Rfam assigns this 69-nucleotide RNA sequence to the family "Small nucleolar RNA SNORD82". Pairs were carried over by alignment from the consensus structure, which was predicted with PFOLD. It is one of the family's seed sequences.

[Rfam]
RNA sequence: GGCACAUGUGAUGAACAGCAAAGGGACUUAAUGCUGAAACUUGAUGUGAUAUUGUGAUGUCUGAUGUGC
Numbered sequence: 001g002g003c004a005c006a007u008g009u010g011a012u013g014a015a016c017a018g019c020a021a022a023g024g025g026a027c028u029u030a031a032u033g034c035u036g037a038a039a040c041u042u043g044a045u046g047u048g049a050u051a052u053u054g055u056g057a058u059g060u061c062u063g064a065u066g067u068g069c
Stems, first nucleotide, its partner, number of pairs: 002069005